[Rfam]
RNA sequence: UGGGCAGUAUCGCAUGCGAACUGCACCCAAACCAAACAUUUGAGCAAUCCAAUCCAAUAAUUCUGCCUUGAUCUUUCAGACAGGGACGGAGGA
Numbered sequence: 001u002g003g004g005c006a007g008u009a010u011c012g013c014a015u016g017c018g019a020a021c022u023g024c025a026c027c028c029a030a031a032c033c034a035a036a037c038a039u040u041u042g043a044g045c046a047a048u049c050c051a052a053u054c055c056a057a058u059a060a061u062u063c064u065g066c067c068u069u070g071a072u073c074u075u076u077c078a079g080a081c082a083g084g085g086a087c088g089g090a091g092g093a
Stems, first nucleotide, its partner, number of pairs: 002027002004024005010019002063089003066085005072080003